RNA sequence: GUUUCGCCCGCCGGUCUUUCCUCCUCCCGGACCGGUCGGGCCAUGAAGGUGCACGGCACCUCCUCCCUUGCCGCACCUUCAUUCGAAGAACACCCGCCGGUCCUCCCCCGGCGGGUGUUUUUC
Numbered sequence: 001g002u003u004u005c006g007c008c009c010g011c012c013g014g015u016c017u018u019u020c021c022u023c024c025u026c027c028c029g030g031a032c033c034g035g036u037c038g039g040g041c042c043a044u045g046a047a048g049g050u051g052c053a054c055g056g057c058a059c060c061u062c063c064u065c066c067c068u069u070g071c072c073g074c075a076c077c078u079u080c081a082u083u084c085g086a087a088g089a090a091c092a093c094c095c096g097c098c099g100g101u102c103c104u105c106c107c108c109c110g111g112c113g114g115g116u117g118u119u120u121u122u123c
Base pairs, nucleotide, nucleotide: 007040008039009038010036011035012034013033014032015031016030045080046079047078048077049076050075051074052073055071090118091117092116093115094114095113096112097111098110099109100108
Record summary:
The record is a 123-nucleotide RNA sequence from Roseitalea porphyridii, which matches "Alphaproteobacterial ar14" in Rfam. Taxonomically the source falls in Roseitalea (Bacteria, Pseudomonadati, Hyphomicrobiales, Ahrensiaceae). For this family Rfam cites "A survey of sRNA families in alpha-proteobacteria" (del Val et al., RNA Biol, 2012).